[Rfam]
RNA sequence: GCGAGACACCUGGCCCAAUGUCCGAGCACGCCGGAUAGACUGGUCGCGGUACGACGCGGGGCGCAGCCCCCUGCCGUCCGACAAUUGUUGAGCCAGCAGCCGCUGCAACCACAGGGAG
Numbered sequence: 001g002c003g004a005g006a007c008a009c010c011u012g013g014c015c016c017a018a019u020g021u022c023c024g025a026g027c028a029c030g031c032c033g034g035a036u037a038g039a040c041u042g043g044u045c046g047c048g049g050u051a052c053g054a055c056g057c058g059g060g061g062c063g064c065a066g067c068c069c070c071c072u073g074c075c076g077u078c079c080g081a082c083a084a085u086u087g088u089u090g091a092g093c094c095a096g097c098a099g100c101c102g103c104u105g106c107a108a109c110c111a112c113a114g115g116g117a118g
Stems, first nucleotide, its partner, number of pairs: 049079001051077003057073005094105004
Description:
The record is a 118-nucleotide RNA sequence from Streptomyces sp. QHH-9511, which matches "Streptomyces-metK RNA" in Rfam. The source organism's lineage runs through Bacteria, Bacillati, Actinomycetota, Kitasatosporales and Streptomyces. By type it is a small RNA.